A member of the RNA family "SAM-I/IV (S-adenosyl methionine) riboswitch aptamer", 95 nucleotides long. It is one of the family's seed sequences. Rfam links the family to the GO terms regulation of gene expression and S-adenosylmethionine metabolic process.
RNA sequence: UCAAAAUAUCACGAGAAGGGUUUGCAUCCUCUCCAACCUGCCAACUCCGGCAAGGUGGAAAAAUGAUAUGGCGUUCAGCAAACAUAGGAGAAUAG
Numbered sequence: 001u002c003a004a005a006a007u008a009u010c011a012c013g014a015g016a017a018g019g020g021u022u023u024g025c026a027u028c029c030u031c032u033c034c035a036a037c038c039u040g041c042c043a044a045c046u047c048c049g050g051c052a053a054g055g056u057g058g059a060a061a062a063a064u065g066a067u068a069u070g071g072c073g074u075u076c077a078g079c080a081a082a083c084a085u086a087g088g089a090g091a092a093u094a095g
Stems, first nucleotide, its partner, number of pairs: 006069005015031001017030005032059003037055003040051003045090004071079002